[Rfam]
RNA sequence: GUUUCAUGAUGAUCCCCAUGCGUGUCAUAUGAUCCCACAAUCCCAUCCAGCUCCCGGCCACCCGCUGGCGUUCUGUCAGGGGGUGUGUCCAGGACUGGAGGAUUCUGGGGCUGUGAUCAUACCCUACAGACUCUGAAAAC
Numbered sequence: 001g002u003u004u005c006a007u008g009a010u011g012a013u014c015c016c017c018a019u020g021c022g023u024g025u026c027a028u029a030u031g032a033u034c035c036c037a038c039a040a041u042c043c044c045a046u047c048c049a050g051c052u053c054c055c056g057g058c059c060a061c062c063c064g065c066u067g068g069c070g071u072u073c074u075g076u077c078a079g080g081g082g083g084u085g086u087g088u089c090c091a092g093g094a095c096u097g098g099a100g101g102a103u104u105c106u107g108g109g110g111c112u113g114u115g116a117u118c119a120u121a122c123c124c125u126a127c128a129g130a131c132u133c134u135g136a137a138a139a140c
Stems, first nucleotide, its partner, number of pairs: 001140004046099005051092002
Rfam assigns this 140-nucleotide RNA from Acipenser ruthenus to the family "Small nucleolar RNA SNORD10".
The match comes from Rfam's covariance-model search (59 bits).
For this family Rfam cites "RNomics: an experimental approach that identifies 201 candidates for novel, small, non-messenger RNAs in mouse" (Huttenhofer et al., EMBO J, 2001).
Taxonomically the source falls in Acipenser (Eukaryota, Deuterostomia, Teleostomi, Actinopteri).
Rfam classes the family as a C/D-box small nucleolar RNA.
Its family is annotated with RNA processing and nucleolus in the Gene Ontology.